The family of this 96-nucleotide RNA from Cellulomonas fimi is "mraW RNA". The family's RNA type in Rfam is cis-regulatory element. The family's consensus secondary structure is taken from published work. The source organism's lineage runs through Bacteria, Bacillati, Actinomycetota, Cellulomonadaceae and Cellulomonas.
RNA sequence: ACCACGCCGUCCGACGAGGUCUCCUCCCGCCCGCUCUGGCGCACUUCCCCGGUGCCAGAGGGUCGGAGGGGGACCUGGUCGGACGGCGGAGUGGCU
Numbered sequence: 001a002c003c004a005c006g007c008c009g010u011c012c013g014a015c016g017a018g019g020u021c022u023c024c025u026c027c028c029g030c031c032c033g034c035u036c037u038g039g040c041g042c043a044c045u046u047c048c049c050c051g052g053u054g055c056c057a058g059a060g061g062g063u064c065g066g067a068g069g070g071g072g073a074c075c076u077g078g079u080c081g082g083a084c085g086g087c088g089g090a091g092u093g094g095c096u
Stems, first nucleotide, its partner, number of pairs: 010083006018075002021072005027066003031062002034060009